Source information:
Rfam assigns this 37-nucleotide sequence to the family "abiF RNA". Actinobacteria, Bacteroidetes, Clostridia, Proteobacteria, one Clostridia phage. The base pairs follow the family's consensus structure, which is taken from published work.

Nucleotides: 037
Base pairs, nucleotide, nucleotide: 001036002035003034004033005032006031008024009023010022
Number, partner (000 for none) and nucleotide at each position: 001036c002035u003034c004033g005032c006031c007000a008024c009023g010022c011000c012000u013000c014000u015000c016000a017000a018000c019000g020000a021000u022010g023009c024008g025000u026000a027000c028000c029000a030000c031006g032005g033004c034003g035002a036001g037000a